This 117-nucleotide RNA from Microbacterium sp. JB110 belongs to the Rfam family "SAM (S-adenosyl methionine) riboswitch aptamer". A search with the family's covariance model found it, with a score of 67 bits. Rfam 15.1 lists 2,360 matches to the family in 1,305 species. On this family, see Weinberg et al., RNA 2008: "The aptamer core of SAM-IV riboswitches mimics the ligand-binding site of SAM-I riboswitches". From the family's description: SAM-IV is a mRNA element that regulates gene expression via direct sensing of S-adenosylmethionine (SAM or AdoMet).
RNA sequence: GUUCAAGAGUCGCGAUCGUAGGUACCUGGCCGGUCGCGCGACAACCCGAAUCCAUCGAUUCCCGGGUGUCCCAGGGGAAGAACGGGCGGCACGGACUUCGUGUCGCAAGAUUCGAUG
Numbered sequence: 001g002u003u004c005a006a007g008a009g010u011c012g013c014g015a016u017c018g019u020a021g022g023u024a025c026c027u028g029g030c031c032g033g034u035c036g037c038g039c040g041a042c043a044a045c046c047c048g049a050a051u052c053c054a055u056c057g058a059u060u061c062c063c064g065g066g067u068g069u070c071c072c073a074g075g076g077g078a079a080g081a082a083c084g085g086g087c088g089g090c091a092c093g094g095a096c097u098u099c100g101u102g103u104c105g106c107a108a109g110a111u112u113c114g115a116u117g
Stems, first nucleotide, its partner, number of pairs: 001083004009039001011038006021031002040070003045066003086106009